[Rfam]
RNA sequence: GUAUUCACCUGGCAGGGGAGACACCAUGAUCAUGAAGGUAGUUUUCCCAGGGCGAGGCUUAUCCAUUGCACUCUGGAUGUGCUGACACCUGCGAUUUCCCCAAACGUGGGAAACUCAACUGCAUAAUUUGUGGUAGUGGGGGACUGUGUUAGAGAUUUUCCCUG
Dot-bracket structure: ...........((((((((((.((.((..........)).))))))))(((..(.(((.(((((..........))))).)))..).)))..(((((.((.......)).))).))..))))...............((((((...(......)...)))))).